[Rfam]
RNA: Purine riboswitch aptamer
RNA sequence: AGCAUCAGCAGCAUGAGUAUUCGUAUAAUCUCGGGAAUGGGCCCGGGAGUCUCUACGAGGUCACCGUAAUGACCUGGCUACGAUUAAAACAAGCUGUCCC
Numbered sequence: 001a002g003c004a005u006c007a008g009c010a011g012c013a014u015g016a017g018u019a020u021u022c023g024u025a026u027a028a029u030c031u032c033g034g035g036a037a038u039g040g041g042c043c044c045g046g047g048a049g050u051c052u053c054u055a056c057g058a059g060g061u062c063a064c065c066g067u068a069a070u071g072a073c074c075u076g077g078c079u080a081c082g083a084u085u086a087a088a089a090c091a092a093g094c095u096g097u098c099c100c
Stems, first nucleotide, its partner, number of pairs: 018086002021083005029048007058075006